[Rfam]
RNA: c-di-AMP riboswitch aptamer (ydaO/yuaA leader)
RNA sequence: AUUAAGAAUAAGCCGAAGUUUAAUAAAACACGGGGGAACCAAAUUUGGGGUGAAUCGCGAAAGCGUAGGUUAUGCCUUUACCGAACCCGUCAGCUAACCUCGUAGGCAAAAGGGGGUAUACAC
Numbered sequence: 001a002u003u004a005a006g007a008a009u010a011a012g013c014c015g016a017a018g019u020u021u022a023a024u025a026a027a028a029c030a031c032g033g034g035g036g037a038a039c040c041a042a043a044u045u046u047g048g049g050g051u052g053a054a055u056c057g058c059g060a061a062a063g064c065g066u067a068g069g070u071u072a073u074g075c076c077u078u079u080a081c082c083g084a085a086c087c088c089g090u091c092a093g094c095u096a097a098c099c100u101c102g103u104a105g106g107c108a109a110a111a112g113g114g115g116g117u118a119u120a121c122a123c
Base pairs, nucleotide, nucleotide: 012107013106014105018029019028020027030103031102032101033100034099035098040047041046048088049087050086056065057064058063068082069081070080